[Rfam]
Iron response element I: a 36-nucleotide RNA from Castor canadensis. It scores 34 bits against the family's covariance model. By type it is a cis-regulatory element. Its family is annotated with response to iron ion in the Gene Ontology. The family's consensus secondary structure is taken from published work. The literature on the family includes a 1987 paper in Science by Hentze et al., "Identification of the iron-responsive element for the translational regulation of human ferritin mRNA".
RNA sequence: CGGCUUCCUACGUCAACAGUGCUUGAACGGAACCCG
Numbered sequence: 001c002g003g004c005u006u007c008c009u010a011c012g013u014c015a016a017c018a019g020u021g022c023u024u025g026a027a028c029g030g031a032a033c034c035c036g
Stems, first nucleotide, its partner, number of pairs: 001036003005032004013026004017021001